Background:
Shown here is a 177-nucleotide sequence from Mycobacterium decipiens, a member of the family "c-di-AMP riboswitch aptamer (ydaO/yuaA leader)". Gene Ontology terms of the family: cyclic-di-AMP binding and regulation of gene expression. The match comes from Rfam's covariance-model search (62 bits). Lineage of the source: Bacteria > Bacillati > Actinomycetota > Mycobacteriales > Mycobacterium.
RNA sequence: GAUUCCGACCCGCGGAUGGAGGCGGGGGACCCACCAGGUCCGCCGAGAUCGGACCGGGGCCGUUUUCGGCUCCUUGGGGUGAAGCCGGUGUCGUGGCGACGACGUAGGACGCUGGCCGGGUGACCUCUCCCACCCGAACCCGACAGCUGACCUCGCAGGCGUGUACCGAGAGGAACU
Numbered sequence: 001g002a003u004u005c006c007g008a009c010c011c012g013c014g015g016a017u018g019g020a021g022g023c024g025g026g027g028g029a030c031c032c033a034c035c036a037g038g039u040c041c042g043c044c045g046a047g048a049u050c051g052g053a054c055c056g057g058g059g060c061c062g063u064u065u066u067c068g069g070c071u072c073c074u075u076g077g078g079g080u081g082a083a084g085c086c087g088g089u090g091u092c093g094u095g096g097c098g099a100c101g102a103c104g105u106a107g108g109a110c111g112c113u114g115g116c117c118g119g120g121u122g123a124c125c126u127c128u129c130c131c132a133c134c135c136g137a138a139c140c141c142g143a144c145a146g147c148u149g150a151c152c153u154c155g156c157a158g159g160c161g162u163g164u165a166c167c168g169a170g171a172g173g174a175a176c177u
Stems, first nucleotide, its partner, number of pairs: 003021005022156006032076002077141003085115008118135004